[Rfam]
RNA sequence: GGGGAACAUUAAAAAGCUGAGAUGUUGCCUGAUACAAUCUUCCUAUAGAAAGAACUGUCAUUUCCUGCUUGUAGUGCUUGAGCGGGUCCUACAAGCCUCAAAUAGACAGGGACAUGA
Numbered sequence: 001g002g003g004g005a006a007c008a009u010u011a012a013a014a015a016g017c018u019g020a021g022a023u024g025u026u027g028c029c030u031g032a033u034a035c036a037a038u039c040u041u042c043c044u045a046u047a048g049a050a051a052g053a054a055c056u057g058u059c060a061u062u063u064c065c066u067g068c069u070u071g072u073a074g075u076g077c078u079u080g081a082g083c084g085g086g087u088c089c090u091a092c093a094a095g096c097c098u099c100a101a102a103u104a105g106a107c108a109g110g111g112a113c114a115u116g117a
Stems, first nucleotide, its partner, number of pairs: 001030003005026006055109002067096008076087003